[Rfam]
RNA sequence: AUCGUUCAAUUUAGGAUCAUUCCUAAAUCGGAAGUAAGUCAAAAGACUGAAGGAACGCAUG
Number, nucleotide and partner (000 for none) at each position: 001a000002u000003c057004g056005u055006u054007c053008a000009a028010u027011u026012u025013a024014g023015g022016a021017u000018c000019a000020u000021u016022c015023c014024u013025a012026a011027a010028u009029c000030g000031g058032a000033a000034g000035u000036a000037a048038g047039u046040c000041a000042a000043a000044a000045g000046a039047c038048u037049g000050a000051a000052g000053g007054a006055a005056c004057g003058c031059a000060u000061g000
Glutamine riboswitch aptamer (glnA leader): a 61-nucleotide RNA sequence. The literature on the family includes a 2011 paper in RNA Biol by Ames and Breaker, "Bacterial aptamers that selectively bind glutamine".